The family of this 118-nucleotide RNA sequence from Penelope pileata is "U4atac minor spliceosomal RNA". On this family, see Lorkovic et al., RNA 2005: "Evolutionary conservation of minor U12-type spliceosome between plants and humans". A search with the family's covariance model found it, with a score of 91 bits. Clan: U4 clan. Rfam links the family to the GO terms mRNA 5'-splice site recognition, pre-mRNA 5'-splice site binding and U4atac snRNP.

RNA sequence: ACCGUCCUUAUCUUGGGGUUGCGCGGCUGCUCAAUGAACGCGUGGUGAGGGCAGCACUGCUAACGCCUAAGCAACACAUCCAGCGCCCGCCUCUGUGCGCGGCGCAAUUUUUGGAACC
Numbered sequence: 001a002c003c004g005u006c007c008u009u010a011u012c013u014u015g016g017g018g019u020u021g022c023g024c025g026g027c028u029g030c031u032c033a034a035u036g037a038a039c040g041c042g043u044g045g046u047g048a049g050g051g052c053a054g055c056a057c058u059g060c061u062a063a064c065g066c067c068u069a070a071g072c073a074a075c076a077c078a079u080c081c082a083g084c085g086c087c088c089g090c091c092u093c094u095g096u097g098c099g100c101g102g103c104g105c106a107a108u109u110u111u112u113g114g115a116a117c118c
Base pairs, nucleotide, nucleotide: 006018007017008016009015021060022059023058026055027054028053029052030051031050032049038046039045083105084104085103086102087101088099089098090097